[Rfam]
RNA: MIR396 microRNA precursor family
RNA sequence: GGUCAUGCUUUUCCACAGCUUUCUUGAACUUCUUUGCCUUGCUUAAUCUGUGUAUAUAUAGAUGAUCACUACAUGUACAGCUCCUAUAUAUAUAAAUAUAUGUAUGUAUAGCGCCAUGGAAGCUCAAGAAAGCUGUGGGAGAACAUGGCAA
Numbered sequence: 001g002g003u004c005a006u007g008c009u010u011u012u013c014c015a016c017a018g019c020u021u022u023c024u025u026g027a028a029c030u031u032c033u034u035u036g037c038c039u040u041g042c043u044u045a046a047u048c049u050g051u052g053u054a055u056a057u058a059u060a061g062a063u064g065a066u067c068a069c070u071a072c073a074u075g076u077a078c079a080g081c082u083c084c085u086a087u088a089u090a091u092a093u094a095a096a097u098a099u100a101u102g103u104a105u106g107u108a109u110a111g112c113g114c115c116a117u118g119g120a121a122g123c124u125c126a127a128g129a130a131a132g133c134u135g136u137g138g139g140a141g142a143a144c145a146u147g148g149c150a151a
Stems, first nucleotide, its partner, number of pairs: 003148005013138003017134006024127004029122005